A member of the RNA family "Guanidine-I riboswitch aptamer" from Methylophaga lonarensis, 104 nucleotides long. The literature on the family includes a 2004 paper in Proc Natl Acad Sci U S A by Barrick et al., "New RNA motifs suggest an expanded scope for riboswitches in bacterial genetic control".

RNA sequence: CAAAUAGAGCGCUAGGGUUCCGAUUUCAAACACUUGAAAUGCUGGUCCGAGAGCACUCAACCUUCACUGAAGGUCACACACGGCGGGACAAAAACCCGGGAGAA
Dot-bracket structure: ......(((.((..((...(((((((((......)))))).).)).))....)).))).((((((...))))))..(...[...(((.......))).)..]..
Numbered sequence: 001c002a003a004a005u006a007g008a009g010c011g012c013u014a015g016g017g018u019u020c021c022g023a024u025u026u027c028a029a030a031c032a033c034u035u036g037a038a039a040u041g042c043u044g045g046u047c048c049g050a051g052a053g054c055a056c057u058c059a060a061c062c063u064u065c066a067c068u069g070a071a072g073g074u075c076a077c078a079c080a081c082g083g084c085g086g087g088a089c090a091a092a093a094a095c096c097c098g099g100g101a102g103a104a
Stems, first nucleotide, its partner, number of pairs: 007058003011054002015048002020045002022042001023040006060074006077099001081102001085097003